RNA sequence: CUCUGGUAACUAGAGAUCCCUCAGAUCACUUUUAGGCAGAGUAAAAAUCUCUAGCAGUGGCGCUCGAACAGGGACCUUAAAGCGAAAGUAAAAGGG
Numbered sequence: 001c002u003c004u005g006g007u008a009a010c011u012a013g014a015g016a017u018c019c020c021u022c023a024g025a026u027c028a029c030u031u032u033u034a035g036g037c038a039g040a041g042u043a044a045a046a047a048u049c050u051c052u053a054g055c056a057g058u059g060g061c062g063c064u065c066g067a068a069c070a071g072g073g074a075c076c077u078u079a080a081a082g083c084g085a086a087a088g089u090a091a092a093a094g095g096g
Base pairs, nucleotide, nucleotide: 001096002095003094004093010054011053012052013051014050015049016048017047020041022039024037026035056089058087061084062083063073064072065071075082
RNA: HIV primer binding site (PBS)